Background:
Shown here is a 253-nucleotide RNA sequence from Butyrivibrio sp. ob235, a member of the family "T-box leader". It is annotated as a cis-regulatory leader. The match comes from Rfam's covariance-model search (106 bits). Rfam's curators write: Uncharged tRNA acts as the effector for transcription antitermination of genes in the T-box leader family. Taxonomically the source falls in Butyrivibrio (Bacteria, Bacillota, Lachnospirales, Lachnospiraceae).
RNA sequence: GUAAAGGCUAUGAAUGGAAUAAGUAGUCUAAUGAUUCAGCCACAGAGAGUUGCCGGUUGGUGAGAGGCGCGGAUAUGCUCAUUAGAUGAAUACAUCCGGGAGCUGCGCGGAGGAAUGAUAUAUCUAGUAAGCCGCGACGAGAACCGAGCGUUAGUCGGAAGAGUAUGCGGAAUAUUCCAAGUACUUGCUGAGGCAUGUGAUGUGAAUUACAUGUGAAUGAAGGUGGUAACACGGAUUUAAACCCGUCCUUCGU
Numbered sequence: 001g002u003a004a005a006g007g008c009u010a011u012g013a014a015u016g017g018a019a020u021a022a023g024u025a026g027u028c029u030a031a032u033g034a035u036u037c038a039g040c041c042a043c044a045g046a047g048a049g050u051u052g053c054c055g056g057u058u059g060g061u062g063a064g065a066g067g068c069g070c071g072g073a074u075a076u077g078c079u080c081a082u083u084a085g086a087u088g089a090a091u092a093c094a095u096c097c098g099g100g101a102g103c104u105g106c107g108c109g110g111a112g113g114a115a116u117g118a119u120a121u122a123u124c125u126a127g128u129a130a131g132c133c134g135c136g137a138c139g140a141g142a143a144c145c146g147a148g149c150g151u152u153a154g155u156c157g158g159a160a161g162a163g164u165a166u167g168c169g170g171a172a173u174a175u176u177c178c179a180a181g182u183a184c185u186u187g188c189u190g191a192g193g194c195a196u197g198u199g200a201u202g203u204g205a206a207u208u209a210c211a212u213g214u215g216a217a218u219g220a221a222g223g224u225g226g227u228a229a230c231a232c233g234g235a236u237u238u239a240a241a242c243c244c245g246u247c248c249u250u251c252g253u
Stems, first nucleotide, its partner, number of pairs: 007103002015098004026087006038074001040072001051069004106136005138150002193214007220250004231246004